[Rfam]
RNA sequence: UGCGAUGAUGAUGUAAUUUGCGUCUUAUCCGGUGUUCAGUGACAGUUGCCUGCUGUCAGUGUACUGGCACUGUUGAACUGAAGACCCCUUGGUUCUGAGCA
Numbered sequence: 001u002g003c004g005a006u007g008a009u010g011a012u013g014u015a016a017u018u019u020g021c022g023u024c025u026u027a028u029c030c031g032g033u034g035u036u037c038a039g040u041g042a043c044a045g046u047u048g049c050c051u052g053c054u055g056u057c058a059g060u061g062u063a064c065u066g067g068c069a070c071u072g073u074u075g076a077a078c079u080g081a082a083g084a085c086c087c088c089u090u091g092g093u094u095c096u097g098a099g100c101a
Stems, first nucleotide, its partner, number of pairs: 001101003021083001023081002030072005039064002041057005
The record is a 101-nucleotide RNA sequence from Upupa epops, which matches "Small nucleolar RNA SNORD16" in Rfam.
Pairs were carried over by alignment from the consensus structure, which was predicted with PFOLD.
The family is grouped with related families in Rfam's "SNORD16 clan".
Rfam links the family to the GO terms RNA processing and nucleolus.
The literature on the family includes a 1993 paper in EMBO J by Fragapane et al., "A novel small nucleolar RNA (U16) is encoded inside a ribosomal protein intron and originates by processing of the pre-mRNA".